[Rfam]
RNA sequence: UCUUCAUUUCGCACACUAUCUCGCGUGUUAGAGAGGCGAGAGAGUACGCGAAAUGAAGAGA
Numbered sequence: 001u002c003u004u005c006a007u008u009u010c011g012c013a014c015a016c017u018a019u020c021u022c023g024c025g026u027g028u029u030a031g032a033g034a035g036g037c038g039a040g041a042g043a044g045u046a047c048g049c050g051a052a053a054u055g056a057a058g059a060g061a
Stems, first nucleotide, its partner, number of pairs: 001059007010050001012048001015045003019041004
About this RNA: Rfam assigns this 61-nucleotide sequence from Pristionchus pacificus to the family "mir-8364 microRNA precursor family". Pairs were carried over by alignment from the consensus structure, which was predicted with RNAalifold. NCBI's taxonomy places the organism under Eukaryota, Ecdysozoa, Chromadorea, Diplogasteroidea, Pristionchus. Gene Ontology terms of the family: RISC complex and miRNA-mediated post-transcriptional gene silencing. A search with the family's covariance model found it, with a score of 68 bits.